[Rfam]
RNA sequence: GGCAGGCUGGGGCUCGUGCCAGAUGCGCGUUUACACGAGAGCCCUGAAUACUGUAAAUGCACUAUCUGGUACGACAUCUCUCCUG
Numbered sequence: 001g002g003c004a005g006g007c008u009g010g011g012g013c014u015c016g017u018g019c020c021a022g023a024u025g026c027g028c029g030u031u032u033a034c035a036c037g038a039g040a041g042c043c044c045u046g047a048a049u050a051c052u053g054u055a056a057a058u059g060c061a062c063u064a065u066c067u068g069g070u071a072c073g074a075c076a077u078c079u080c081u082c083c084u085g
Stems, first nucleotide, its partner, number of pairs: 009080003015073009025062001027060009
The family of this 85-nucleotide RNA from Nasonia giraulti is "mir-277 microRNA precursor family".
Gene Ontology terms of the family: miRNA-mediated post-transcriptional gene silencing and RISC complex.
For this family Rfam cites "MicroRNAs of Bombyx mori identified by Solexa sequencing" (Liu et al., BMC Genomics, 2010).